[Rfam]
RNA sequence: CUUCUAAUUUACUUGCUGCUACAGUCUCACAAUGGUAUAAGCAGUUUUACACAUGAUAAAAUAAUAUUGGACCAUUGCAAAUUGAGAUAAAGUAACCAUUUUCAUCUCUGCUGCAUAGACUAGACAUUG
Numbered sequence: 001c002u003u004c005u006a007a008u009u010u011a012c013u014u015g016c017u018g019c020u021a022c023a024g025u026c027u028c029a030c031a032a033u034g035g036u037a038u039a040a041g042c043a044g045u046u047u048u049a050c051a052c053a054u055g056a057u058a059a060a061a062u063a064a065u066a067u068u069g070g071a072c073c074a075u076u077g078c079a080a081a082u083u084g085a086g087a088u089a090a091a092g093u094a095a096c097c098a099u100u101u102u103c104a105u106c107u108c109u110g111c112u113g114c115a116u117a118g119a120c121u122a123g124a125c126a127u128u129g
Stems, first nucleotide, its partner, number of pairs: 003056002007054002015045006023036001025035002067123004072118001074116001076115004084108005089102005
Dot-bracket structure: ..((..((......((((((..(.((.......)))...)))))).......))))..........((((.(.(.((((....((((((((((....))))).)))))...))))).).))))......
Shown here is a 129-nucleotide RNA sequence from Carlito syrichta, a member of the family "Small nucleolar RNA SNORA20".
Gene Ontology terms of the family: RNA processing and nucleolus.
ACA20 is a member of the H/ACA class of snoRNA that guide the sites of modification of uridines to pseudouridines.
Pairs were carried over by alignment from the consensus structure, which was predicted with ILM.
NCBI's taxonomy places the organism under Eukaryota, Eumetazoa, Eutheria, Euarchontoglires, Carlito.
The match comes from Rfam's covariance-model search (97 bits).
By type it is an H/ACA-box small nucleolar RNA.